Plastid-psbN 5UTR RNA: a 61-nucleotide RNA from Nostoc sp. PCC 7524. Lineage of the source: Bacteria > Cyanobacteriota > Cyanophyceae > Nostocaceae > Nostoc. The family's consensus secondary structure was predicted with LocARNA. It scores 55 bits against the family's covariance model. On this family, see Zhelyazkova et al., Plant Cell 2012: "The primary transcriptome of barley chloroplasts: numerous noncoding RNAs and the dominating role of the plastid-encoded RNA polymerase".
RNA sequence: AAAAAUAGCCAUUACAGGAGUUGUCCCCCAGCCUGGAGCUACUUUACCAUACUCAGAAUUU
Numbered sequence: 001a002a003a004a005a006u007a008g009c010c011a012u013u014a015c016a017g018g019a020g021u022u023g024u025c026c027c028c029c030a031g032c033c034u035g036g037a038g039c040u041a042c043u044u045u046a047c048c049a050u051a052c053u054c055a056g057a058a059u060u061u
Base pairs, nucleotide, nucleotide: 017045018044019043020042021041023039024038026036027035